[Rfam]
The record is a 410-nucleotide RNA from Parendozoicomonas haliclonae, which matches "transfer-messenger RNA" in Rfam. It scores 174 bits against the family's covariance model. The literature on the family includes a 1996 paper in RNA by Williams and Bartel, "Phylogenetic analysis of tmRNA secondary structure". Lineage of the source: Bacteria > Pseudomonadati > Gammaproteobacteria > Oceanospirillales > Parendozoicomonas. The base pairs follow the family's consensus structure, which is taken from published work.
RNA sequence: GGGGACGAUUCGGAUUCGACGACGAUAACGAACCCCGAGGUGCAUGCCGAGAGUUGGUAAUCACUCUCGUAAAACAAUGAUUACUGGUUAUUAGCUGCCAAAACUCAAGCUAAUGACGAGCUUUACGACGCUCCAGCUGUUGUUACAGCUGCUGCGGCGUAAUUUCGUUACCUAAACAGUAACGCUCGUCCGGUCUAUCCGCCCCGUCUGUCGGGAGGUAUUCAGACCGUCAUUGCAGACAGACUCGCCGUGAUCAGCGCCUGGCUUUGAUCGGUUAAAACCUUACAGGAUCGGCCUGUUUCAUCCCGACCGCUGGAUCGUGACAGGUUUAAAUCAAAGGCGGAUCUAAGCAUGUAGAGCCAAGGGCAGAGUAUCGGCGGACGCGGGUUCAAAUCCCGCCGUCUCCACCA
Numbered sequence: 001g002g003g004g005a006c007g008a009u010u011c012g013g014a015u016u017c018g019a020c021g022a023c024g025a026u027a028a029c030g031a032a033c034c035c036c037g038a039g040g041u042g043c044a045u046g047c048c049g050a051g052a053g054u055u056g057g058u059a060a061u062c063a064c065u066c067u068c069g070u071a072a073a074a075c076a077a078u079g080a081u082u083a084c085u086g087g088u089u090a091u092u093a094g095c096u097g098c099c100a101a102a103a104c105u106c107a108a109g110c111u112a113a114u115g116a117c118g119a120g121c122u123u124u125a126c127g128a129c130g131c132u133c134c135a136g137c138u139g140u141u142g143u144u145a146c147a148g149c150u151g152c153u154g155c156g157g158c159g160u161a162a163u164u165u166c167g168u169u170a171c172c173u174a175a176a177c178a179g180u181a182a183c184g185c186u187c188g189u190c191c192g193g194u195c196u197a198u199c200c201g202c203c204c205c206g207u208c209u210g211u212c213g214g215g216a217g218g219u220a221u222u223c224a225g226a227c228c229g230u231c232a233u234u235g236c237a238g239a240c241a242g243a244c245u246c247g248c249c250g251u252g253a254u255c256a257g258c259g260c261c262u263g264g265c266u267u268u269g270a271u272c273g274g275u276u277a278a279a280a281c282c283u284u285a286c287a288g289g290a291u292c293g294g295c296c297u298g299u300u301u302c303a304u305c306c307c308g309a310c311c312g313c314u315g316g317a318u319c320g321u322g323a324c325a326g327g328u329u330u331a332a333a334u335c336a337a338a339g340g341c342g343g344a345u346c347u348a349a350g351c352a353u354g355u356a357g358a359g360c361c362a363a364g365g366g367c368a369g370a371g372u373a374u375c376g377g378c379g380g381a382c383g384c385g386g387g388u389u390c391a392a393a394u395c396c397c398g399c400c401g402u403c404u405c406c407a408c409c410a
Stems, first nucleotide, its partner, number of pairs: 001406007020379002023376005034366003039361003043354005048069005057084007191229006199218002202215003206244007248274003260289004293329008302320001304317003308346002311343001312341003383399005